[Rfam]
Rfam assigns this 73-nucleotide RNA sequence from Aegotheles bennettii to the family "Small nucleolar RNA SNORD26". Pairs were carried over by alignment from the consensus structure, which was predicted with PFOLD. Rfam 15.1 lists 451 matches to the family in 401 species. Rfam links the family to the GO terms nucleolus and RNA processing. A reference for the family is Tycowski et al. (1996), "A mammalian gene with introns instead of exons generating stable RNA products", Nature. A search with the family's covariance model found it, with a score of 52 bits. Clan: SNORD26 clan.
RNA sequence: CUGCGGGGAUGAUCCAUCGAACUCUCUCUUACCGAUGGUCUCGUGGGGGAAGCUUGAGAAGCCUCUGAGCGGC
Numbered sequence: 001c002u003g004c005g006g007g008g009a010u011g012a013u014c015c016a017u018c019g020a021a022c023u024c025u026c027u028c029u030u031a032c033c034g035a036u037g038g039u040c041u042c043g044u045g046g047g048g049g050a051a052g053c054u055u056g057a058g059a060a061g062c063c064u065c066u067g068a069g070c071g072g073c
Base pairs, nucleotide, nucleotide: 001072002071003070004069